[Rfam]
RNA: Ascomycota telomerase RNA, nucleotides 1141 to 1542
RNA sequence: AACACACAGAAGAAGUUCUCGUUUCAUGAGCGUUUCUGGCCUAUCUUGCUUCAUGCUAUCAAAAGUCUAGACGACAGAGGUCGAAGAAAGCACAGGGGGCUUGCGCGGCGCUAAUCACCACCGGAUUUUUCGGCAACAUUUUCUCUUCCUCGACGACUUUGCAUGCAAAUUGCUGGUUGUUGGAAACAGUUUCGGGACCCAUCUCGUGUUGGAGUCAGAGUUUCGUACUCGUCCGGAACUAGUGGCCAAUGGCAUGCUGCAAGAAGGUAACAGAGGCAAGGGUUCAAGUUGGAUGAUUACCCCCUACUAUUGGCUUCAGAGGGCAGACCGCAUAUCAAAAGGUAGCCCUGGUUGUCCUCGUGCCUGCAAUGGUGGGAGGACAACCCCCCAACAUUUGUGGGG
Dot-bracket structure: ...................................................................................................................................................................................................((((((........))).))).((((.....))))............................................................................................................................................................................